The family of this 157-nucleotide sequence from Vibrio sediminis is "Molybdenum/Tungsten riboswitch aptamer (Moco RNA motif)". Taxonomically the source falls in Vibrio (Bacteria, Pseudomonadota, Gammaproteobacteria, Vibrionaceae). The family's consensus secondary structure is taken from published work. The match comes from Rfam's covariance-model search (72 bits).

[Rfam]
RNA sequence: CAGUUGCCAUCGCUCCGAGCCUGAUUGGUGCUAAGUCUUCUGGAUAUGCCUGUCAGGCCGUGGUGUUGUUGCUGAUGAAUAAGCAAACAAUUCCUAAGGGUUUACUUAGAAAUGGGUGAGCCUCCCGUGUUUGGAAAGGUGUGACGUGGCGGAACAA
Numbered sequence: 001c002a003g004u005u006g007c008c009a010u011c012g013c014u015c016c017g018a019g020c021c022u023g024a025u026u027g028g029u030g031c032u033a034a035g036u037c038u039u040c041u042g043g044a045u046a047u048g049c050c051u052g053u054c055a056g057g058c059c060g061u062g063g064u065g066u067u068g069u070u071g072c073u074g075a076u077g078a079a080u081a082a083g084c085a086a087a088c089a090a091u092u093c094c095u096a097a098g099g100g101u102u103u104a105c106u107u108a109g110a111a112a113u114g115g116g117u118g119a120g121c122c123u124c125c126c127g128u129g130u131u132u133g134g135a136a137a138g139g140u141g142u143g144a145c146g147u148g149g150c151g152g153a154a155c156a157a
Stems, first nucleotide, its partner, number of pairs: 011143003015139002019058007030049002035045004062093002098123011124134002